The record is an 80-nucleotide RNA from Candidatus Kuenenia stuttgartensis, which matches "c-di-GMP-I riboswitch aptamer" in Rfam. Gene Ontology term of the family: cyclic-di-GMP binding. NCBI's taxonomy places the organism under Bacteria, Pseudomonadati, Planctomycetota, Candidatus Brocadiales, Candidatus Kuenenia.
RNA sequence: UUUGAAAAAAGGUAAACCAAUCGUGAGGUUGGGACACAAAGCCAUGGGUCUUUCUUAAAGAAGAAUGCCAGGUUGCCAGA
Numbered sequence: 001u002u003u004g005a006a007a008a009a010a011g012g013u014a015a016a017c018c019a020a021u022c023g024u025g026a027g028g029u030u031g032g033g034a035c036a037c038a039a040a041g042c043c044a045u046g047g048g049u050c051u052u053u054c055u056u057a058a059a060g061a062a063g064a065a066u067g068c069c070a071g072g073u074u075g076c077c078a079g080a
Base pairs, nucleotide, nucleotide: 012037013036017032018031019030020029021028022027040074041073042072043071045070046069047068049064050063051062052061053060
Pairs were carried over by alignment from the consensus structure, which is taken from published work.